Notes:
Shown here is a 323-nucleotide sequence from Bacteroidales bacterium CF, a member of the family "Bacterial RNase P class A". It is annotated as a ribozyme. A search with the family's covariance model found it, with a score of 205 bits. The family's consensus secondary structure is taken from published work.
RNA sequence: CAGGUGGGCCGCUCUAUCGCUCUCUGAAAAGAGGGAGGAAAGUCCGGACAGGGCAGAGCAAGGCUCUGUGGAAAUCACAGCUGGGGGUAACCUUAGGCAAAUCGUAACAGAAAAUUACCGCCUUGAGAAAGGUAAGGGUGAAAACGCGGGGUAAGAGCCCACGAUGAUUUAUGGCAACAUGGGUCAGGUACGACCAGCCUCCUGCAAGGCCAUGUAUACCAGUUUUAAAGGCUGCUCGUCUUAUGCUGGGGGGUAGGCUGCAUCAGAUAAAUGAUAGAGACCUCAUUGAGGUACAGAAUCCGGCUUACAGGCCCACCUUUUUU
Numbered sequence: 001c002a003g004g005u006g007g008g009c010c011g012c013u014c015u016a017u018c019g020c021u022c023u024c025u026g027a028a029a030a031g032a033g034g035g036a037g038g039a040a041a042g043u044c045c046g047g048a049c050a051g052g053g054c055a056g057a058g059c060a061a062g063g064c065u066c067u068g069u070g071g072a073a074a075u076c077a078c079a080g081c082u083g084g085g086g087g088u089a090a091c092c093u094u095a096g097g098c099a100a101a102u103c104g105u106a107a108c109a110g111a112a113a114a115u116u117a118c119c120g121c122c123u124u125g126a127g128a129a130a131g132g133u134a135a136g137g138g139u140g141a142a143a144a145c146g147c148g149g150g151g152u153a154a155g156a157g158c159c160c161a162c163g164a165u166g167a168u169u170u171a172u173g174g175c176a177a178c179a180u181g182g183g184u185c186a187g188g189u190a191c192g193a194c195c196a197g198c199c200u201c202c203u204g205c206a207a208g209g210c211c212a213u214g215u216a217u218a219c220c221a222g223u224u225u226u227a228a229a230g231g232c233u234g235c236u237c238g239u240c241u242u243a244u245g246c247u248g249g250g251g252g253g254u255a256g257g258c259u260g261c262a263u264c265a266g267a268u269a270a271a272u273g274a275u276a277g278a279g280a281c282c283u284c285a286u287u288g289a290g291g292u293a294c295a296g297a298a299u300c301c302g303g304c305u306u307a308c309a310g311g312c313c314c315a316c317c318u319u320u321u322u323u
Stems, first nucleotide, its partner, number of pairs: 002318009011308001012279007020035006040306003044303005049204004056237004061200005066080005081096001083094004097195001102193005118137002120133005145163002148160003166185008208259004219249005228242005